This 126-nucleotide RNA sequence from Muntiacus reevesi belongs to the Rfam family "Small nucleolar RNA SNORD22". The source organism's lineage runs through Eukaryota, Deuterostomia, Dipnotetrapodomorpha, Pecora and Muntiacus. The family's consensus secondary structure was predicted with PFOLD. For this family Rfam cites "A mammalian gene with introns instead of exons generating stable RNA products" (Tycowski et al., Nature, 1996).
RNA sequence: UCCCAGUGAAAAAGCAUUCACACAUCUUACCUCUUGUUCCAGUUCCAGAGAUUAUAAAGGUGAACCCACUGGGGCUGGCUUGGGGAGAAGACGGAAUCUCGUUCCAGAAGGAACUGUCUGAGGGGU
Numbered sequence: 001u002c003c004c005a006g007u008g009a010a011a012a013a014g015c016a017u018u019c020a021c022a023c024a025u026c027u028u029a030c031c032u033c034u035u036g037u038u039c040c041a042g043u044u045c046c047a048g049a050g051a052u053u054a055u056a057a058a059g060g061u062g063a064a065c066c067c068a069c070u071g072g073g074g075c076u077g078g079c080u081u082g083g084g085g086a087g088a089a090g091a092c093g094g095a096a097u098c099u100c101g102u103u104c105c106a107g108a109a110g111g112a113a114c115u116g117u118c119u120g121a122g123g124g125g126u
Stems, first nucleotide, its partner, number of pairs: 001125004